[Rfam]
RNA sequence: CUUACAGAUUUUAUUGGCAUUUUGUCCACCUCCGAUCAUAGAACCACAGCCCCUUUCAUGGAGGUGGACAUACUGCCAACUGGGCUCUGUUGG
Numbered sequence: 001c002u003u004a005c006a007g008a009u010u011u012u013a014u015u016g017g018c019a020u021u022u023u024g025u026c027c028a029c030c031u032c033c034g035a036u037c038a039u040a041g042a043a044c045c046a047c048a049g050c051c052c053c054u055u056u057c058a059u060g061g062a063g064g065u066g067g068a069c070a071u072a073c074u075g076c077c078a079a080c081u082g083g084g085c086u087c088u089g090u091u092g093g
Stems, first nucleotide, its partner, number of pairs: 011083001014079006023070011
Dot-bracket structure: ..........(..((((((...(((((((((((..........................)))))))))))...))))))...)..........
Source information
MIR394 microRNA precursor family: a 93-nucleotide RNA sequence from Hibiscus syriacus. The family's consensus secondary structure was predicted with WAR.